[Rfam]
RNA sequence: CGUUCCCUUGCUGGAGAGAGGCGCCGCGCCGCACAGGCCGCGCCCACCGAAGGAGCAAACCCGCAUCGGCGGGUGAAUCUCUCAGGUAAAGAGGACAGCAGGGCAAAC
Numbered sequence: 001c002g003u004u005c006c007c008u009u010g011c012u013g014g015a016g017a018g019a020g021g022c023g024c025c026g027c028g029c030c031g032c033a034c035a036g037g038c039c040g041c042g043c044c045c046a047c048c049g050a051a052g053g054a055g056c057a058a059a060c061c062c063g064c065a066u067c068g069g070c071g072g073g074u075g076a077a078u079c080u081c082u083c084a085g086g087u088a089a090a091g092a093g094g095a096c097a098g099c100a101g102g103g104c105a106a107a108c
Stems, first nucleotide, its partner, number of pairs: 006103008020044004046087003049083002053081003059074006
The family of this 108-nucleotide RNA sequence from Acidovorax sp. HDW3 is "Glycine riboswitch aptamer". Its family is annotated with glycine biosynthetic process in the Gene Ontology. Taxonomically the source falls in Acidovorax (Bacteria, Pseudomonadati, Betaproteobacteria, Burkholderiales).